A member of the RNA family "RNase MRP" from Paraglomus occultum, 329 nucleotides long. The family's RNA type in Rfam is ribozyme.

[Rfam]
RNA sequence: GAACACAUCAAAGAAUCGCUGUCAGAGCAAAACACACGGAGUGGCAAGACUUGAGGUCAAAUACUGGUGUUUGUUCACCUUAUUUCACAUCUCGUCUUUUCCCUCACUUAUGCUUUGGGGAAAGUCCCCGGACUCUCCGACAGAAAGUGUCACCCAUAAAGUCGGUGUUACCUCUUCUUGCACGCUGCUUAAAUCAAAGACAUAUGAGAUUAUAGCGGAGUGGGAUCGGGAGAGGCGUUGGUCAUUUUGAAUAGUAAUGCGAUUGCGGUUUCUGUGUUUCGUUAGAGGCACAGAAGUCGUAACUCAAUGGGGCUUACUCUUGAGGUGUU
Dot-bracket structure: .(((((.((((..((((((..(((((((..............((.......................................................))..........)))))))...[[[.[[[[.........((((.....))))..((........)).(((......(.((...(.(.........(..........(..(...)..)...).).)....)).).)))......................)))))).((((((((((((((......)))))))))))))).........]]]]]]]....)))).)))))
Numbered sequence: 001g002a003a004c005a006c007a008u009c010a011a012a013g014a015a016u017c018g019c020u021g022u023c024a025g026a027g028c029a030a031a032a033c034a035c036a037c038g039g040a041g042u043g044g045c046a047a048g049a050c051u052u053g054a055g056g057u058c059a060a061a062u063a064c065u066g067g068u069g070u071u072u073g074u075u076c077a078c079c080u081u082a083u084u085u086c087a088c089a090u091c092u093c094g095u096c097u098u099u100u101c102c103c104u105c106a107c108u109u110a111u112g113c114u115u116u117g118g119g120g121a122a123a124g125u126c127c128c129c130g131g132a133c134u135c136u137c138c139g140a141c142a143g144a145a146a147g148u149g150u151c152a153c154c155c156a157u158a159a160a161g162u163c164g165g166u167g168u169u170a171c172c173u174c175u176u177c178u179u180g181c182a183c184g185c186u187g188c189u190u191a192a193a194u195c196a197a198a199g200a201c202a203u204a205u206g207a208g209a210u211u212a213u214a215g216c217g218g219a220g221u222g223g224g225a226u227c228g229g230g231a232g233a234g235g236c237g238u239u240g241g242u243c244a245u246u247u248u249g250a251a252u253a254g255u256a257a258u259g260c261g262a263u264u265g266c267g268g269u270u271u272c273u274g275u276g277u278u279u280c281g282u283u284a285g286a287g288g289c290a291c292a293g294a295a296g297u298c299g300u301a302a303c304u305c306a307a308u309g310g311g312g313c314u315u316a317c318u319c320u321u322g323a324g325g326u327g328u329u
Stems, first nucleotide, its partner, number of pairs: 002329005008323004014264006022118007043101002122315003126312004139151004154165002167236003176232001178230002183224001185222001195220001206216001209213001266299014
For this family Rfam cites "Secondary structure of RNase MRP RNA as predicted by phylogenetic comparison" (Schmitt et al., FASEB J, 1993).